[Rfam]
RNA: MIR1520 microRNA precursor family
Organism: Hibiscus trionum
RNA sequence: AUUCAAUAAGAUGAUGACAUGUGUCACCACCUAAUUGGAGGUGAAAAAUUAAUUAAAUAAAAAUAAUUAAAGACCUCCAAUAAGGUGGUGACACAUGUCAUCAUCU
Numbered sequence: 001a002u003u004c005a006a007u008a009a010g011a012u013g014a015u016g017a018c019a020u021g022u023g024u025c026a027c028c029a030c031c032u033a034a035u036u037g038g039a040g041g042u043g044a045a046a047a048a049u050u051a052a053u054u055a056a057a058u059a060a061a062a063a064u065a066a067u068u069a070a071a072g073a074c075c076u077c078c079a080a081u082a083a084g085g086u087g088g089u090g091a092c093a094c095a096u097g098u099c100a101u102c103a104u105c106u
Stems, first nucleotide, its partner, number of pairs: 021094002025090003029086004034081003